[Rfam]
RNA sequence: UGAUUUAGGGGAUGAAUCGUGGUUUCCUAUAUUUAGGAAACCACUGUUCAUCCCCUAAAUCA
Numbered sequence: 001u002g003a004u005u006u007a008g009g010g011g012a013u014g015a016a017u018c019g020u021g022g023u024u025u026c027c028u029a030u031a032u033u034u035a036g037g038a039a040a041c042c043a044c045u046g047u048u049c050a051u052c053c054c055c056u057a058a059a060u061c062a
Stems, first nucleotide, its partner, number of pairs: 002061004007056001009054009019044011
A member of the RNA family "mir-753 microRNA precursor family" from Juglans regia, 62 nucleotides long.
The base pairs follow the family's consensus structure, which was predicted with RNAalifold.
Rfam links the family to the GO terms RISC complex and miRNA-mediated post-transcriptional gene silencing.
The source organism's lineage runs through Eukaryota, Euphyllophyta, eudicotyledons, Pentapetalae and Juglans.
A search with the family's covariance model found it, with a score of 64 bits.